The family of this 80-nucleotide RNA sequence from Asparagus officinalis is "Small nucleolar RNA R16". It is annotated as a C/D-box small nucleolar RNA. For this family Rfam cites "Purified box C/D snoRNPs are able to reproduce site-specific 2'-O-methylation of target RNA in vitro" (Galardi et al., Mol Cell Biol, 2002). Lineage of the source: Eukaryota > Spermatophyta > Liliopsida > Asparagales > Asparagus. Its family is annotated with RNA processing and nucleolus in the Gene Ontology.
[Rfam]
RNA sequence: UGUGGCACUUGACGAAAAUAUCUAUGCUUAACACUGAAUUUUAUGUGUAGACUCAACUCCGCUUAUUAUCUGAUGCCACA
Dot-bracket structure: ..(((((..................................................................)))))..